RNA sequence: CCCACACACAUGUGUGUAAGACCUCAAAUGAUCACCAUUAAAUUUGAUACAGACAUCUAGAAAAGUUAUCAUAUGGAUAUGGGACUUGACUUUUUUAGAGAUCUAUGUCAAAUUUAAUGGUGAUCCUUUAGGGUCUUACAUACAUGUGUGUGGG
Dot-bracket structure: .((((((((((((.((((((((((.(((.(((.((((((((((((((((.(((..((((((((((((((((((....)))))....)))))))))))))..))).)))))))))))))))).))).))).)))))))))).)))))))))))).
The family of this 154-nucleotide RNA from Amborella trichopoda is "MIR8565 microRNA precursor family". NCBI's taxonomy places the organism under Eukaryota, Streptophyta, Streptophytina, Euphyllophyta, Amborella.